[Rfam]
RNA sequence: ACGACCUUACUUGAACAGGAUCUGUUCUAUAGGAUCGUACCGCUUCAUCCUUGACUAAUAAGGAGGCAAGCACUCAAGCCUGGUUGAUGAGUCACGACCUGUGGGCCAGAGCGUGAUUAACGGCUAGGAUUGGAGCUUUAUAGGCUCCAUCUACGGCUGUAGAGGAUCGUUUCUGGUCAGGCCUGCUUGGCUGGGGUGGCCCUCAGGUUGUCUGACAGGCU
Number, nucleotide and partner (000 for none) at each position: 001a038002c037003g035004a000005c033006c032007u031008u000009a000010c000011u000012u000013g027014a026015a025016c024017a023018g022019g000020a000021u000022c018023u017024g016025u015026u014027c013028u000029a000030u000031a007032g006033g005034a000035u003036c000037g002038u001039a000040c000041c000042g000043c000044u068045u000046c066047a000048u064049c063050c062051u061052u060053g059054a000055c000056u000057a000058a000059u053060a052061a051062g050063g049064a048065g000066g046067c000068a044069a000070g000071c000072a000073c000074u000075c000076a000077a000078g220079c219080c218081u217082g216083g000084u000085u000086g000087a000088u000089g000090a000091g000092u000093c000094a000095c000096g000097a208098c207099c206100u205101g204102u000103g202104g201105g200106c199107c198108a197109g000110a171111g170112c169113g168114u000115g000116a000117u000118u000119a000120a160121c159122g158123g157124c156125u155126a000127g000128g152129a000130u000131u149132g148133g147134a146135g145136c144137u000138u000139u000140a000141u000142a000143g000144g136145c135146u134147c133148c132149a131150u000151c000152u128153a000154c000155g125156g124157c123158u122159g121160u120161a000162g000163a000164g000165g000166a000167u000168c113169g112170u111171u110172u000173c194174u193175g192176g191177u190178c189179a188180g187181g186182c000183c000184u000185g000186c181187u180188u179189g178190g177191c176192u175193g174194g173195g000196g000197u108198g107199g106200c105201c104202c103203u000204c101205a100206g099207g098208u097209u000210g000211u000212c000213u000214g000215a000216c082217a081218g080219g079220c078221u000

Shown here is a 221-nucleotide RNA from Panicum miliaceum, a member of the family "Plant small nucleolar RNA U3". Rfam classes the family as a C/D-box small nucleolar RNA. The family has 24 seed sequences and 3,759 matches in Rfam 15.1. The source organism's lineage runs through Eukaryota, Euphyllophyta, Paniceae, Panicinae and Panicum sect. Panicum. A reference for the family is Speckmann et al. (1999), "Nuclear retention elements of U3 small nucleolar RNA", Mol Cell Biol. About the family: Small nucleolar RNAs (snoRNAs) are involved in the processing and modification of rRNA in the nucleolus. There are two main classes of snoRNAs: the box C/D class, and the box H/ACA class. U3 snoRNA is a member of the box C/D class. Indeed, the box C/D element is a subset of the six short sequence elements found in all U3 snoRNAs, namely boxes A, A', B, C, C', and D. The U3 snoRNA secondary structure is characterised by a small 5' domain (with boxes A and A'), and a larger 3' domain (with boxes B, C, C', and D), the two domains being linked by a single-stranded hinge. The family's consensus secondary structure is taken from published work.